[Rfam]
RNA: tRNA
Organism: Kitasatospora viridis
RNA sequence: GCGGCCUUGGCGUAACGGCAGCCGCGCUGGGUUUAGAUCCCAGUGGGGGAAACCCCGUGAGGGUUCGAAUCCCUCAGGCCGCA
Numbered sequence: 001g002c003g004g005c006c007u008u009g010g011c012g013u014a015a016c017g018g019c020a021g022c023c024g025c026g027c028u029g030g031g032u033u034u035a036g037a038u039c040c041c042a043g044u045g046g047g048g049g050a051a052a053c054c055c056c057g058u059g060a061g062g063g064u065u066c067g068a069a070u071c072c073c074u075c076a077g078g079c080c081g082c083a
Stems, first nucleotide, its partner, number of pairs: 001082007010025003027043005059075005